[Rfam]
RNA sequence: GGAUUUUGAGGUGGGAAAGGUUCCCCACGCGCUUGCUUUGGCAAGUUACCAGAGAUGCAGGAUACGCCGACCUGCCAAAGUUC
Numbered sequence: 001g002g003a004u005u006u007u008g009a010g011g012u013g014g015g016a017a018a019g020g021u022u023c024c025c026c027a028c029g030c031g032c033u034u035g036c037u038u039u040g041g042c043a044a045g046u047u048a049c050c051a052g053a054g055a056u057g058c059a060g061g062a063u064a065c066g067c068c069g070a071c072c073u074g075c076c077a078a079a080g081u082u083c
Stems, first nucleotide, its partner, number of pairs: 001083008011028005019068003030052001031046006057075005
RNA: skipping-rope RNA